[Rfam]
Nucleotides: 136
Stems, first nucleotide, its partner, number of pairs: 004134003009129009019119003023115003026111006
Number, partner (000 for none) and nucleotide at each position: 001000g002000a003000c004134g005133g006132a007000a008000a009129c010128u011127u012126c013125c014124a015123a016122a017121g018000a019119g020118a021117u022000c023115g024114c025113a026111u027110g028109a029108u030107c031106c032000a033000a034000u035000u036000u037000a038000u039000u040000a041000c042000g043000a044000g045000a046000u047000c048000a049000g050000a051000a052000u053000c054000a055000a056000a057000u058000a059000a060000u061000c062000a063000a064000u065000c066000g067000a068000u069000c070000g071000a072000u073000c074000u075000c076000a077000a078000u079000u080000c081000u082000c083000a084000c085000u086000c087000a088000g089000a090000u091000g092000g093000a094000g095000u096000u097000a098000a099000u100000a101000u102000a103000u104000a105000u106031g107030g108029a109028u110027c111026a112000a113025u114024g115023c116000g117021a118020u119019c120000c121017c122016u123015u124014u125013g126012g127011a128010a129009g130000c131000u132006u133005c134004c135000a136000c

Overview
mir-393 microRNA precursor family: a 136-nucleotide RNA sequence from Centaurea solstitialis. Its family is annotated with miRNA-mediated post-transcriptional gene silencing and RISC complex in the Gene Ontology. The source organism's lineage runs through Eukaryota, eudicotyledons, Asterales, Carduoideae and Centaurea. A reference for the family is Kruszka et al. (2012), "Role of microRNAs and other sRNAs of plants in their changing environments", J Plant Physiol. The base pairs follow the family's consensus structure.